[Rfam]
RNA sequence: AGGCAUCCAAAGGGAUCGCAUUGAUCCCAAAUCUAAUUAAGUCCCUAGCUACUUAAUUAACAACUUAAUUUCCUUAAUAUCUCAUAAUAUUUGGGAUCAUGCUAUCCCUUUGGAUUCAU
Numbered sequence: 001a002g003g004c005a006u007c008c009a010a011a012g013g014g015a016u017c018g019c020a021u022u023g024a025u026c027c028c029a030a031a032u033c034u035a036a037u038u039a040a041g042u043c044c045c046u047a048g049c050u051a052c053u054u055a056a057u058u059a060a061c062a063a064c065u066u067a068a069u070u071u072c073c074u075u076a077a078u079a080u081c082u083c084a085u086a087a088u089a090u091u092u093g094g095g096a097u098c099a100u101g102c103u104a105u106c107c108c109u110u111u112g113g114a115u116u117c118a119u
Base pairs, nucleotide, nucleotide: 001119003117005115006114007113008112009111010110011109012108013107014106015105016104018102019101020100021099023098024097025096026095027094028093029092030091031090032089